[Rfam]
RNA sequence: GCGCAGAGUAGAAGCGUUCAGCCGCGGCCCGGUUCGGCCCACGGUGGGAAAUUGCUCUUUCA
Numbered sequence: 001g002c003g004c005a006g007a008g009u010a011g012a013a014g015c016g017u018u019c020a021g022c023c024g025c026g027g028c029c030c031g032g033u034u035c036g037g038c039c040c041a042c043g044g045u046g047g048g049a050a051a052u053u054g055c056u057c058u059u060u061c062a
Base pairs, nucleotide, nucleotide: 005058006057007056008055009054010053015047018049019048021045022044023043024042026040027039

Xanthine riboswitch aptamer (NMT1 RNA): a 62-nucleotide RNA sequence from Variovorax sp. JS1663. The base pairs follow the family's consensus structure, which is taken from published work. Rfam links the family to the GO term purine nucleobase binding.